[Rfam]
RNA sequence: ACGAAUUGAUCGGGAGAGAUCGCAGGCCAAGGCCCGCGGCGCCGAAGGAGCAACCGCCCCGGAAACUCUCAGGCAAAAGGACCGGUCCAUUCUU
Numbered sequence: 001a002c003g004a005a006u007u008g009a010u011c012g013g014g015a016g017a018g019a020u021c022g023c024a025g026g027c028c029a030a031g032g033c034c035c036g037c038g039g040c041g042c043c044g045a046a047g048g049a050g051c052a053a054c055c056g057c058c059c060c061g062g063a064a065a066c067u068c069u070c071a072g073g074c075a076a077a078a079g080g081a082c083c084g085g086u087c088c089a090u091u092c093u094u
Base pairs, nucleotide, nucleotide: 006089008087009086010085011084012083013082020039021038022037023036041074042073043072044070045069048068049067050066054062055061
RNA: Glycine riboswitch aptamer